permuted transfer-messenger RNA: a 184-nucleotide RNA sequence from Prochlorococcus sp. AG-363-L02.
[Rfam]
RNA sequence: GGUGAUUCACACCAAUACCUCGGACAGCGGUUCGAUUCCGCUCAGCUCCAUAAAUUUUUUUGGGGCUGUAAUGGUUUCGACGGGGUAUCAGGAGGGUGACUGAAGCCUGCUCGGUUAGGGCAAAUACGUAACAGCGAACAACAUCGUUCGUUUCUCCCGUCAGUCAGCCCCUGUUGCUGCCUGA
Numbered sequence: 001g002g003u004g005a006u007u008c009a010c011a012c013c014a015a016u017a018c019c020u021c022g023g024a025c026a027g028c029g030g031u032u033c034g035a036u037u038c039c040g041c042u043c044a045g046c047u048c049c050a051u052a053a054a055u056u057u058u059u060u061u062g063g064g065g066c067u068g069u070a071a072u073g074g075u076u077u078c079g080a081c082g083g084g085g086u087a088u089c090a091g092g093a094g095g096g097u098g099a100c101u102g103a104a105g106c107c108u109g110c111u112c113g114g115u116u117a118g119g120g121c122a123a124a125u126a127c128g129u130a131a132c133a134g135c136g137a138a139c140a141a142c143a144u145c146g147u148u149c150g151u152u153u154c155u156c157c158c159g160u161c162a163g164u165c166a167g168c169c170c171c172u173g174u175u176g177c178u179g180c181c182u183g184a
Stems, first nucleotide, its partner, number of pairs: 001101003005097001016087003020083003026042005043068007

Overview: The base pairs follow the family's consensus structure, which is taken from published work. Rfam describes the family as follows. Bacterial tmRNA, also known as 10Sa RNA or SsrA, is named for its dual tRNA and mRNA-like properties. Its role is to liberate the mRNA from a stalled ribosome. To accomplish this part of the tmRNA is used as a reading frame that ends in a translation stop signal. The broken mRNA is replaced in the ribosome by the tmRNA and translation of the tmRNA leads to addition of a proteolysis tag to the incomplete protein enabling recognition by a protease.